[Rfam]
RNA sequence: AAGAGAACCGAAGGAUUGAAAAAUGAAGGUGGAGCGAGCAGGACAGAUUAAAUGUAGCGGAAGGAUAAUAAAACACAGAGGAGUGAAAGAAACUCCUUAUCCUCGAAAUGGCGGCAGAGGAGAUAAUUUCUUAAGGAAGCGUCGUGAACGCAUAAGCGGCUUGUUUGUAAUUCCCAGGUGUACGGGCGAUGAGGGCUUAAAGAUAAGCACAGUGCACAUACA
Dot-bracket structure: ......(((.....(((....)))...)))...........................................(((.(((((((.......))))))).(((((............)))))(((..((((.....)))).))))))..(((....)))...................((((((...........(((((....)))))...)))))).....
This 222-nucleotide sequence belongs to the Rfam family "Clostridiales-3 RNA".